Shown here is an 81-nucleotide RNA from Streptomyces sp. BA2, a member of the family "nrdJ RNA". The match comes from Rfam's covariance-model search (75 bits).
[Rfam]
RNA sequence: ACCUGUUGCGGGCGCCUUCGCGGGCUUCCGCGGCACCAGACAACACCGUGUCACGGGAACAUCGUGGCACUUCAGGGCGUU
Numbered sequence: 001a002c003c004u005g006u007u008g009c010g011g012g013c014g015c016c017u018u019c020g021c022g023g024g025c026u027u028c029c030g031c032g033g034c035a036c037c038a039g040a041c042a043a044c045a046c047c048g049u050g051u052c053a054c055g056g057g058a059a060c061a062u063c064g065u066g067g068c069a070c071u072u073c074a075g076g077g078c079g080u081u
Stems, first nucleotide, its partner, number of pairs: 004035009014025003048070008